[Rfam]
RNA sequence: CGGGGAAAGAAGACCCUGUUGAGCUUGACUCUAGUUUGACAUUGUGAAAAGACAUAUCGGGUGUAGAAUAGGUGGGAGCUUCGGCGCCGGUGAAAUACCACUACCUUUAUUGUUUUUUUACUUAUUCAAUGAAGCGGAACUGGGCUUUACCGCCCAACUUCUAGCGUUAAGGUCCUUCGCGGGCUGAUCCGGGUUGAAGACAUUGUCAGGUGGGGAGUUUGGCUGGGGCGGCACAUCUGUUAAACCAUAACGCAGGUGUCCUAAGGGGGACUCAUGGAGAACAGAAAUCUCCAGUAGAACAAAAGGGUAAAAGUCCCCUUGAUUUUGAUUUUCAGUGUGAAUACAAACCAUGAAAGUGUGGCCUAUCGAUCCUUUAGUCCCUCGAAAUUUGAGGCUAGAGGUGCCAGAAAAGUUACCACAGGGAUAACUGGCUUGUGGCAGCCAAGCGUUCAUAGCGACGUUGCUUUUUGAUCCUUCGAUGUCGGCUCUUCCUAUCAUACCGAAGCAGAAUUCGGUAAGCGUUGGAUUGUUCACCCACUAAUAGGGAACGUGAGCUGGGUUUAGACCGUCGUGAGACAGGUUAGUUUUACCCUA
Numbered sequence: 001c002g003g004g005g006a007a008a009g010a011a012g013a014c015c016c017u018g019u020u021g022a023g024c025u026u027g028a029c030u031c032u033a034g035u036u037u038g039a040c041a042u043u044g045u046g047a048a049a050a051g052a053c054a055u056a057u058c059g060g061g062u063g064u065a066g067a068a069u070a071g072g073u074g075g076g077a078g079c080u081u082c083g084g085c086g087c088c089g090g091u092g093a094a095a096u097a098c099c100a101c102u103a104c105c106u107u108u109a110u111u112g113u114u115u116u117u118u119u120a121c122u123u124a125u126u127c128a129a130u131g132a133a134g135c136g137g138a139a140c141u142g143g144g145c146u147u148u149a150c151c152g153c154c155c156a157a158c159u160u161c162u163a164g165c166g167u168u169a170a171g172g173u174c175c176u177u178c179g180c181g182g183g184c185u186g187a188u189c190c191g192g193g194u195u196g197a198a199g200a201c202a203u204u205g206u207c208a209g210g211u212g213g214g215g216a217g218u219u220u221g222g223c224u225g226g227g228g229c230g231g232c233a234c235a236u237c238u239g240u241u242a243a244a245c246c247a248u249a250a251c252g253c254a255g256g257u258g259u260c261c262u263a264a265g266g267g268g269g270a271c272u273c274a275u276g277g278a279g280a281a282c283a284g285a286a287a288u289c290u291c292c293a294g295u296a297g298a299a300c301a302a303a304a305g306g307g308u309a310a311a312a313g314u315c316c317c318c319u320u321g322a323u324u325u326u327g328a329u330u331u332u333c334a335g336u337g338u339g340a341a342u343a344c345a346a347a348c349c350a351u352g353a354a355a356g357u358g359u360g361g362c363c364u365a366u367c368g369a370u371c372c373u374u375u376a377g378u379c380c381c382u383c384g385a386a387a388u389u390u391g392a393g394g395c396u397a398g399a400g401g402u403g404c405c406a407g408a409a410a411a412g413u414u415a416c417c418a419c420a421g422g423g424a425u426a427a428c429u430g431g432c433u434u435g436u437g438g439c440a441g442c443c444a445a446g447c448g449u450u451c452a453u454a455g456c457g458a459c460g461u462u463g464c465u466u467u468u469u470g471a472u473c474c475u476u477c478g479a480u481g482u483c484g485g486c487u488c489u490u491c492c493u494a495u496c497a498u499a500c501c502g503a504a505g506c507a508g509a510a511u512u513c514g515g516u517a518a519g520c521g522u523u524g525g526a527u528u529g530u531u532c533a534c535c536c537a538c539u540a541a542u543a544g545g546g547a548a549c550g551u552g553a554g555c556u557g558g559g560u561u562u563a564g565a566c567c568g569u570c571g572u573g574a575g576a577c578a579g580g581u582u583a584g585u586u587u588u589a590c591c592c593u594a
Base pairs, nucleotide, nucleotide: 003593004592005591007588008587015422016421017420018419020418021417022414023413024412025411026410028218029217030216031215035210036209037208038207039206040205041204044121045120046119047118048117049116050115051114052113053112054110055109056108059105060104071102072101073100074099075098078085079084125198126197127196128195129194135191136190137189138188143154144153145152171185172184173183174182175181221234222232223231224230235257236256237255238254239253240252260361261360266318267317268316269315270314271313272298273297275293276292277291278290279289280288299308300307323347324346325345328342329341330340331339349358350357351356372400373399374398375397376396377395380394381393382392383391431472433470435469437465438464439463440462441461442460446456447455483558484556485555486554487553488550489547490546491545492544493543496521499516500515501514502513503512504511523537524536525535527533564582565581566580567579568577569576570575
Background: The record is a 594-nucleotide part of an RNA from Coccidioides immitis, which matches "Eukaryotic large subunit ribosomal RNA" in Rfam. The family's consensus secondary structure is taken from published work. The organism belongs to Coccidioides immitis, within Eukaryota. A reference for the family is Yusupov et al. (2001), "Crystal structure of the ribosome at 5.5 A resolution", Science.